[Rfam]
RNA: Guanidine-II riboswitch aptamer (mini-ykkC)
RNA sequence: CGGCCGGGACGACCCGGCCUCUCCCAUGGACAUCGGCCGGGACGACCCGG
Numbered sequence: 001c002g003g004c005c006g007g008g009a010c011g012a013c014c015c016g017g018c019c020u021c022u023c024c025c026a027u028g029g030a031c032a033u034c035g036g037c038c039g040g041g042a043c044g045a046c047c048c049g050g
Stems, first nucleotide, its partner, number of pairs: 002019007037050005